[Rfam]
RNA sequence: CUGGUAUCCGGCGAUGGGGCUCGCCGCCAACCGCACCCCUGGGGUGCUGAUGGCCUCUACCCGCUG
Numbered sequence: 001c002u003g004g005u006a007u008c009c010g011g012c013g014a015u016g017g018g019g020c021u022c023g024c025c026g027c028c029a030a031c032c033g034c035a036c037c038c039c040u041g042g043g044g045u046g047c048u049g050a051u052g053g054c055c056u057c058u059a060c061c062c063g064c065u066g
Base pairs, nucleotide, nucleotide: 010025011024012023013022016057017056018055019054020053021052033047034046035045036044

Overview
Shown here is a 66-nucleotide RNA sequence from Streptomyces monashensis, a member of the family "Fluoride riboswitch aptamer (crcB RNA motif)". NCBI's taxonomy places the organism under Bacteria, Actinomycetes, Kitasatosporales, Streptomycetaceae, Streptomyces.